[Rfam]
RNA sequence: UGCAAAUGAUGUCUUUCUCACGAUGGUCUUCCAAGCCUCUGGCUUUGACGACAACGCCUUAUGGCAAAACUGAUGCAGUUCG
Numbered sequence: 001u002g003c004a005a006a007u008g009a010u011g012u013c014u015u016u017c018u019c020a021c022g023a024u025g026g027u028c029u030u031c032c033a034a035g036c037c038u039c040u041g042g043c044u045u046u047g048a049c050g051a052c053a054a055c056g057c058c059u060u061a062u063g064g065c066a067a068a069a070c071u072g073a074u075g076c077a078g079u080u081c082g
Stems, first nucleotide, its partner, number of pairs: 001077004
Dot-bracket structure: ((((.....................................................................)))).....